[Rfam]
RNA: Small nucleolar RNA SNORD11B
RNA sequence: CAGAAGCGGUGAUGAUGAAGACGCAACGUCACUGUCCUGAAAACCACUGAUGGCUUUAAGUCACUACCUCAUCUGAGCUUCCA
Numbered sequence: 001c002a003g004a005a006g007c008g009g010u011g012a013u014g015a016u017g018a019a020g021a022c023g024c025a026a027c028g029u030c031a032c033u034g035u036c037c038u039g040a041a042a043a044c045c046a047c048u049g050a051u052g053g054c055u056u057u058a059a060g061u062c063a064c065u066a067c068c069u070c071a072u073c074u075g076a077g078c079u080u081c082c083a
Base pairs, nucleotide, nucleotide: 003081004080005079006078007077